Shown here is a 265-nucleotide RNA from Alkalicella caledoniensis, a member of the family "Bacterial large signal recognition particle RNA". The family's consensus secondary structure is taken from published work. The literature on the family includes a 2003 paper in Nucleic Acids Res by Rosenblad et al., "SRPDB: Signal Recognition Particle Database". The organism belongs to Alkalicella, within Bacteria. By type it is a non-coding RNA gene. A search with the family's covariance model found it, with a score of 204 bits. Rfam links the family to the GO terms signal recognition particle, plasma membrane targeting and SRP-dependent cotranslational protein targeting to membrane, signal sequence recognition.
[Rfam]
RNA sequence: CCGUGCUAGAUGGGGAGGUAGCGGUGCCCUGUACCUGCAACCCGCUAUAGCAGGAUUGAGUUCCUAUUUUGAGGCCUAUGCUUUUGUAGGGCUGGCUUAAGUAAGUGGUGACGACGAUUGGGUCCUGCGCAAUAGCACGCUAUGAAUUCCGUCAGGUCCGGAAGGAAGCAGCGGUAAGUAGUUGCUGUUAUGUGCCGCGGGGAAGCCUGAUCCGAGCUAACUGCUUGGGUAUCGCCUAUGAACUUAGGUCGAAGGUAGGGCGCGG
Numbered sequence: 001c002c003g004u005g006c007u008a009g010a011u012g013g014g015g016a017g018g019u020a021g022c023g024g025u026g027c028c029c030u031g032u033a034c035c036u037g038c039a040a041c042c043c044g045c046u047a048u049a050g051c052a053g054g055a056u057u058g059a060g061u062u063c064c065u066a067u068u069u070u071g072a073g074g075c076c077u078a079u080g081c082u083u084u085u086g087u088a089g090g091g092c093u094g095g096c097u098u099a100a101g102u103a104a105g106u107g108g109u110g111a112c113g114a115c116g117a118u119u120g121g122g123u124c125c126u127g128c129g130c131a132a133u134a135g136c137a138c139g140c141u142a143u144g145a146a147u148u149c150c151g152u153c154a155g156g157u158c159c160g161g162a163a164g165g166a167a168g169c170a171g172c173g174g175u176a177a178g179u180a181g182u183u184g185c186u187g188u189u190a191u192g193u194g195c196c197g198c199g200g201g202g203a204a205g206c207c208u209g210a211u212c213c214g215a216g217c218u219a220a221c222u223g224c225u226u227g228g229g230u231a232u233c234g235c236c237u238a239u240g241a242a243c244u245u246a247g248g249u250c251g252a253a254g255g256u257a258g259g260g261c262g263c264g265g
Base pairs, nucleotide, nucleotide: 001265002264003263004262005261006260007259009057010056011055012030013029014028015027017025019023034054035053036052037051038050064258065257066256067255068254069253070252073250074249075248076247077246083242084241085240086239087238088237089236090235095230097228098227099226100225101224102223105221106220107218108217109216116212117211118210119209120208121207122206123205124201125200126199127198128197129196130192131191133190134189135188136187137186139182140181141180142179143178149174150173151172152171157166158165159164

The signal recognition particle (SRP) is a universally conserved ribonucleoprotein involved in the co-translational targeting of proteins to membranes.